[Rfam]
RNA: Small nucleolar RNA R11/Z151
Organism: Artemisia annua
RNA sequence: GAGCUUAUGAUGAAAAAAAACAAUUAUCUUAGCGGAUUUCAGAGAGAUUUUAAAUCAAUGAUCUCAUGUUACACACACUGAGGCUC
Numbered sequence: 001g002a003g004c005u006u007a008u009g010a011u012g013a014a015a016a017a018a019a020a021c022a023a024u025u026a027u028c029u030u031a032g033c034g035g036a037u038u039u040c041a042g043a044g045a046g047a048u049u050u051u052a053a054a055u056c057a058a059u060g061a062u063c064u065c066a067u068g069u070u071a072c073a074c075a076c077a078c079u080g081a082g083g084c085u086c
Stems, first nucleotide, its partner, number of pairs: 001086005